The record is a 65-nucleotide RNA from Artemia franciscana, which matches "tRNA" in Rfam. It is annotated as a transfer RNA. The base pairs follow the family's consensus structure, which is taken from published work. The source organism's lineage runs through Eukaryota, Bilateria, Branchiopoda, Artemiidae and Artemia.
RNA sequence: AUUUAUAUAGUAUAUUUAAUACAAUGCAUUUUCAAUGCAUAAAUGGAUAAAAUAUCCUUUAAAUA
Numbered sequence: 001a002u003u004u005a006u007a008u009a010g011u012a013u014a015u016u017u018a019a020u021a022c023a024a025u026g027c028a029u030u031u032u033c034a035a036u037g038c039a040u041a042a043a044u045g046g047a048u049a050a051a052a053u054a055u056c057c058u059u060u061a062a063a064u065a
Stems, first nucleotide, its partner, number of pairs: 001064005007058001010022004024040005045057004